[Rfam]
RNA sequence: UGAAAGUGUGCCUAGGGUUCCGCUUUGCUGACUGCAAAGGUCUGGUCCAAGCGGUACAAAUCCACGUUGUCUCAUCAACCUGGAUACACCAGAGGGAUAAAAACCCAGAUGGA
Numbered sequence: 001u002g003a004a005a006g007u008g009u010g011c012c013u014a015g016g017g018u019u020c021c022g023c024u025u026u027g028c029u030g031a032c033u034g035c036a037a038a039g040g041u042c043u044g045g046u047c048c049a050a051g052c053g054g055u056a057c058a059a060a061u062c063c064a065c066g067u068u069g070u071c072u073c074a075u076c077a078a079c080c081u082g083g084a085u086a087c088a089c090c091a092g093a094g095g096g097a098u099a100a101a102a103a104c105c106c107a108g109a110u111g112g113a
Base pairs, nucleotide, nucleotide: 007058008057009056010055011054012053015048016047020045021044022042023039024038025037026036027035028034060085061084062083063082064081066079067078068077069076087108089111094106095105096104

Shown here is a 113-nucleotide RNA from Alicyclobacillus sp. SO9, a member of the family "Guanidine-I riboswitch aptamer". For this family Rfam cites "New RNA motifs suggest an expanded scope for riboswitches in bacterial genetic control" (Barrick et al., Proc Natl Acad Sci U S A, 2004). Lineage of the source: Bacteria > Bacillota > Caryophanales > Alicyclobacillaceae > Alicyclobacillus.